RNA sequence: UUACAGAAACCCGUAAAUCCGAACUUGUGCUGGGUGGUUUUGUGUUGCAAGAACGGGUUUAUGGGAAUCUGUCAA
Numbered sequence: 001u002u003a004c005a006g007a008a009a010c011c012c013g014u015a016a017a018u019c020c021g022a023a024c025u026u027g028u029g030c031u032g033g034g035u036g037g038u039u040u041u042g043u044g045u046u047g048c049a050a051g052a053a054c055g056g057g058u059u060u061a062u063g064g065g066a067a068u069c070u071g072u073c074a075a
Stems, first nucleotide, its partner, number of pairs: 003072005010065003015060007024051006
Shown here is a 75-nucleotide sequence from Megaselia scalaris, a member of the family "mir-10 microRNA precursor family". Lineage of the source: Eukaryota > Panarthropoda > Insecta > Diptera > Megaselia.